RNA: mir-166 microRNA precursor family
Organism: Digitaria exilis
RNA sequence: UCUGUGUGGAAUGUUGUCUGGUUCUAGGCCUUCAGAGGAGACAUGCAUGAUGCAAAAGCCUCAUCUAUGGGUCCUCGGACCAGGCUUCAUUCCUCUCAGA
Dot-bracket structure: ((((.(.((((((..((((((..(.(................................................).)..))))))..)))))).).))))
Numbered sequence: 001u002c003u004g005u006g007u008g009g010a011a012u013g014u015u016g017u018c019u020g021g022u023u024c025u026a027g028g029c030c031u032u033c034a035g036a037g038g039a040g041a042c043a044u045g046c047a048u049g050a051u052g053c054a055a056a057a058g059c060c061u062c063a064u065c066u067a068u069g070g071g072u073c074c075u076c077g078g079a080c081c082a083g084g085c086u087u088c089a090u091u092c093c094u095c096u097c098a099g100a
Stems, first nucleotide, its partner, number of pairs: 001100004006095001008093006016085006024077001026075001